This 89-nucleotide RNA from Erwinia sp. 198 belongs to the Rfam family "Peptidase-S11 RNA".
Lineage of the source: Bacteria > Gammaproteobacteria > Enterobacterales > Erwiniaceae > Erwinia.

RNA sequence: CGUAUGAUGAUGCCGCCAGCCCCCGUGUGGCGUGCAUUGUGCGGCGGCGGCGUAUGGCCUGGCCAUACCUGAAUCACUACCCGAUUAAG
Numbered sequence: 001c002g003u004a005u006g007a008u009g010a011u012g013c014c015g016c017c018a019g020c021c022c023c024c025g026u027g028u029g030g031c032g033u034g035c036a037u038u039g040u041g042c043g044g045c046g047g048c049g050g051c052g053u054a055u056g057g058c059c060u061g062g063c064c065a066u067a068c069c070u071g072a073a074u075c076a077c078u079a080c081c082c083g084a085u086u087a088a089g
Base pairs, nucleotide, nucleotide: 015051016050017049019048020047021046023044024043025042026041027040028039029038052068053067054066055065056064057063